Group II catalytic intron D1-D4-6: a 224-nucleotide sequence from Parachlamydia sp. AcF125. A search with the family's covariance model found it, with a score of 162 bits. Group II introns are found in rRNA, tRNA and mRNA of organelles in fungi, plants and protists, and also in mRNA in bacteria. The base pairs follow the family's consensus structure. NCBI's taxonomy places the organism under Bacteria, Pseudomonadati, Chlamydiia, Parachlamydiales, Parachlamydia. Rfam 15.1 lists 1,617 matches to the family in 661 species. For this family Rfam cites "The ins and outs of group II introns" (Bonen and Vogel, Trends Genet, 2001).
RNA sequence: AGAGCCGCACGUUGAAGAUUACAGCAAAAUCACAACGGCCACGAGUCAUGCGCGGAUAAGCGAGAGGUUAUACGCGAAGCGUUAGACAGUGGUAUACACAGGUUAGGUAUUGAGCCCCGAAAAUUUCUUAGAUCAGAAUGCCGACGUGUUUGUGUUCAUCGGAAGGCAACACUGUUGACAUCGAUAAUGCGAGAUGUAAACAGAUUCUGCGUGGUCGAAGACCC
Numbered sequence: 001a002g003a004g005c006c007g008c009a010c011g012u013u014g015a016a017g018a019u020u021a022c023a024g025c026a027a028a029a030u031c032a033c034a035a036c037g038g039c040c041a042c043g044a045g046u047c048a049u050g051c052g053c054g055g056a057u058a059a060g061c062g063a064g065a066g067g068u069u070a071u072a073c074g075c076g077a078a079g080c081g082u083u084a085g086a087c088a089g090u091g092g093u094a095u096a097c098a099c100a101g102g103u104u105a106g107g108u109a110u111u112g113a114g115c116c117c118c119g120a121a122a123a124u125u126u127c128u129u130a131g132a133u134c135a136g137a138a139u140g141c142c143g144a145c146g147u148g149u150u151u152g153u154g155u156u157c158a159u160c161g162g163a164a165g166g167c168a169a170c171a172c173u174g175u176u177g178a179c180a181u182c183g184a185u186a187a188u189g190c191g192a193g194a195u196g197u198a199a200a201c202a203g204a205u206u207c208u209g210c211g212u213g214g215u216c217g218a219a220g221a222c223c224c
Base pairs, nucleotide, nucleotide: 010037011036012035013034014033017031018030020028024190025189039092040091041090042089045087046086047085048083049081050080051076052075053074054073056071057070058069059068061066111218112216114215115214116213118211119210134209135208136207137206138205139204140167141166142165145161146160172203173202174201175200176199178197179196180195181194182193